[Rfam]
RNA sequence: UGGGCGGUAUCCUGGUGAACUGCACCUUUUGCAAGGACAAUUAAAAACGGUUUCUGCCUAGAUCCGUAAAAGGACCGGGACAGAGGG
Numbered sequence: 001u002g003g004g005c006g007g008u009a010u011c012c013u014g015g016u017g018a019a020c021u022g023c024a025c026c027u028u029u030u031g032c033a034a035g036g037a038c039a040a041u042u043a044a045a046a047a048c049g050g051u052u053u054c055u056g057c058c059u060a061g062a063u064c065c066g067u068a069a070a071a072g073g074a075c076c077g078g079g080a081c082a083g084a085g086g087g
Base pairs, nucleotide, nucleotide: 002026003025004023005022006021007020008019010018011017054083055082056081057079058078059077061075063074064073065072
This 87-nucleotide sequence from Neobacillus piezotolerans belongs to the Rfam family "pan motif". Pairs were carried over by alignment from the consensus structure, which is taken from published work. The source organism's lineage runs through Bacteria, Bacillota, Bacilli, Bacillaceae and Neobacillus. It scores 63 bits against the family's covariance model. By type it is a cis-regulatory element.